A member of the RNA family "RAGATH-28 RNA", 80 nucleotides long. By type it is a small RNA. It is one of the family's seed sequences.

RNA sequence: ACAGGGUCGAUUCGUCCCCUGCGGAUUGCCCGGCGGGCAUAGCAGCAAAAAACCGGGCGGAAACGGCCGGAUGGCGAAGC
Numbered sequence: 001a002c003a004g005g006g007u008c009g010a011u012u013c014g015u016c017c018c019c020u021g022c023g024g025a026u027u028g029c030c031c032g033g034c035g036g037g038c039a040u041a042g043c044a045g046c047a048a049a050a051a052a053c054c055g056g057g058c059g060g061a062a063a064c065g066g067c068c069g070g071a072u073g074g075c076g077a078a079g080c
Base pairs, nucleotide, nucleotide: 002021003020004019005018006017053070054069055068056067058065059064